[Rfam]
Overview: The family of this 90-nucleotide RNA from Cohnella faecalis is "pan motif". The family's consensus secondary structure is taken from published work.
RNA sequence: AGGAAGGUAUCCGAGAGGAACCUUACCGGAAAAAAAGCAGGAGUAUGGUUUAAACGAAGCUCUGAUCCCGAUCAGGACAGAGACUUGGGA
Dot-bracket structure: .(((((((.((......))))))).)).............................((((((((.(((......)))))))).)))....